[Rfam]
RNA sequence: UCCUCGCUCAAAGAAUCGCAUUCAAAGCUUACACACAGAGUGUCUCCCUCCCUCUUUCGGUGACAGACAUCUCCCUCCACGCUUUGGGAGAAAGUCCCCGGACAACGGUAUUCUUUUACCGCACUCGCUACAAAGCGCCGCCACAGAAGCGCGGCCUCUCUCACUCCAUCAGAACACCAUUCCUUCUCUCCUUCAAACCGCUUGCACUCUCCCUCGAUCAUUUUCAAAACCACUUGCAAUGGGCCGACACCCGGACGAAGAUAUGAGUCCGUCGCCACCCUGAGCUAGUGCGUCUAGGAUCUGUGACGGGGUGGAGGAGGUGCGAAGGUUGCUUGGGGAGUGGUUGUGAGCAGAGGGUCUUUUCGUCGAGAUGGAUAGUUAUGCGAUUGCCUUCUACGUUUCCAGUCUAUGGAUUUGUUGGGAGGUAACUCGAUGGGGCUUAUUUUUGAUACGAGG
Numbered sequence: 001u002c003c004u005c006g007c008u009c010a011a012a013g014a015a016u017c018g019c020a021u022u023c024a025a026a027g028c029u030u031a032c033a034c035a036c037a038g039a040g041u042g043u044c045u046c047c048c049u050c051c052c053u054c055u056u057u058c059g060g061u062g063a064c065a066g067a068c069a070u071c072u073c074c075c076u077c078c079a080c081g082c083u084u085u086g087g088g089a090g091a092a093a094g095u096c097c098c099c100g101g102a103c104a105a106c107g108g109u110a111u112u113c114u115u116u117u118a119c120c121g122c123a124c125u126c127g128c129u130a131c132a133a134a135g136c137g138c139c140g141c142c143a144c145a146g147a148a149g150c151g152c153g154g155c156c157u158c159u160c161u162c163a164c165u166c167c168a169u170c171a172g173a174a175c176a177c178c179a180u181u182c183c184u185u186c187u188c189u190c191c192u193u194c195a196a197a198c199c200g201c202u203u204g205c206a207c208u209c210u211c212c213c214u215c216g217a218u219c220a221u222u223u224u225c226a227a228a229a230c231c232a233c234u235u236g237c238a239a240u241g242g243g244c245c246g247a248c249a250c251c252c253g254g255a256c257g258a259a260g261a262u263a264u265g266a267g268u269c270c271g272u273c274g275c276c277a278c279c280c281u282g283a284g285c286u287a288g289u290g291c292g293u294c295u296a297g298g299a300u301c302u303g304u305g306a307c308g309g310g311g312u313g314g315a316g317g318a319g320g321u322g323c324g325a326a327g328g329u330u331g332c333u334u335g336g337g338g339a340g341u342g343g344u345u346g347u348g349a350g351c352a353g354a355g356g357g358u359c360u361u362u363u364c365g366u367c368g369a370g371a372u373g374g375a376u377a378g379u380u381a382u383g384c385g386a387u388u389g390c391c392u393u394c395u396a397c398g399u400u401u402c403c404a405g406u407c408u409a410u411g412g413a414u415u416u417g418u419u420g421g422g423a424g425g426u427a428a429c430u431c432g433a434u435g436g437g438g439c440u441u442a443u444u445u446u447u448g449a450u451a452c453g454a455g456g
Stems, first nucleotide, its partner, number of pairs: 002456005008449004014388006022088001023086006038071001040070005092441003096438004106121005206360001212356004218349004230343004322332004390425006

Rfam assigns this 456-nucleotide RNA sequence from Zopfia rhizophila to the family "RNase MRP". The match comes from Rfam's covariance-model search (106 bits). From the family's description: RNase MRP is an enzymatically active ribonucleoprotein with two distinct roles in eukaryotes. The source organism's lineage runs through Eukaryota, Fungi, Ascomycota, Zopfiaceae and Zopfia rhizophila.